[Rfam]
RNA sequence: CUUGAUCGAGCCCAGCCACAACGGCUCGCCCUCCGGGCGGUCCUUGCCGUACGUGGCGAGCAGCGCCUGCGCCUC
Numbered sequence: 001c002u003u004g005a006u007c008g009a010g011c012c013c014a015g016c017c018a019c020a021a022c023g024g025c026u027c028g029c030c031c032u033c034c035g036g037g038c039g040g041u042c043c044u045u046g047c048c049g050u051a052c053g054u055g056g057c058g059a060g061c062a063g064c065g066c067c068u069g070c071g072c073c074u075c
Stems, first nucleotide, its partner, number of pairs: 014026004031071001033069001038065002043060003047056003
Dot-bracket structure: .............((((.....))))....(.(....((...(((.(((....))).)))...))...).)....
RNA: ASpks TB sRNA